[Rfam]
RNA: ASpks TB sRNA
Nucleotides: 069
Stems, first nucleotide, its partner, number of pairs: 016024002028065003032059001037054002041050003
Number, partner (000 for none) and nucleotide at each position: 001000c002000u003000u004000g005000a006000u007000c008000g009000a010000g011000c012000c013000c014000a015000g016024c017023c018000a019000c020000a021000g022000u023017g024016g025000g026000g027000u028065u029064u030063c031000g032059c033000g034000g035000c036000c037054c038053u039000g040000g041050c042049c043048g044000u045000a046000g047000g048043c049042g050041g051000c052000g053038a054037g055000c056000a057000g058000g059032g060000c061000c062000u063030g064029g065028g066000c067000c068000u069000c